[Rfam]
RNA sequence: UGUCCAUGCCCUCCUUGGGCGUUUCCUCCCUAGACUUCGACCGCUCUCCGGAGCGGUCUUUUUUUAACCUGCU
Numbered sequence: 001u002g003u004c005c006a007u008g009c010c011c012u013c014c015u016u017g018g019g020c021g022u023u024u025c026c027u028c029c030c031u032a033g034a035c036u037u038c039g040a041c042c043g044c045u046c047u048c049c050g051g052a053g054c055g056g057u058c059u060u061u062u063u064u065u066a067a068c069c070u071g072c073u
Stems, first nucleotide, its partner, number of pairs: 008020004039058008
Dot-bracket structure: .......((((.....))))..................((((((((....))))))))...............
RNA: Makes More Granules Regulator RNA (mmgR)